[Rfam]
RNA sequence: GAUGGUAGGUCCAUCGGUGUCGCUGUACAAGCGGAGGCAUCAAACCGCUUCCCGAUGCUUUGAUAGUAAUAGAGAGGUGUUAAACGGUAGGAAGAAAAGGCUGUUAAAGAACAGUCAGGU
Numbered sequence: 001g002a003u004g005g006u007a008g009g010u011c012c013a014u015c016g017g018u019g020u021c022g023c024u025g026u027a028c029a030a031g032c033g034g035a036g037g038c039a040u041c042a043a044a045c046c047g048c049u050u051c052c053c054g055a056u057g058c059u060u061u062g063a064u065a066g067u068a069a070u071a072g073a074g075a076g077g078u079g080u081u082a083a084a085c086g087g088u089a090g091g092a093a094g095a096a097a098a099g100g101c102u103g104u105u106a107a108a109g110a111a112c113a114g115u116c117a118g119g120u
Base pairs, nucleotide, nucleotide: 001015002014003013004012005011016041017040018039019038020037021036023034024033025032026031046119048094049093050092051091052090053087054081055080057078058077059076061074064071099116100115101114102113103112104111
Shown here is a 120-nucleotide RNA sequence from Darwinula stevensoni, a member of the family "Group II catalytic intron D1-D4-2". Gene Ontology term of the family: Group II intron splicing. Rfam's curators write: Group II introns are found in rRNA, tRNA and mRNA of organelles in fungi, plants and protists, and also in mRNA in bacteria. Lineage of the source: Eukaryota > Ecdysozoa > Panarthropoda > Darwinulidae > Darwinula. The pairing is the family consensus, mapped onto this sequence.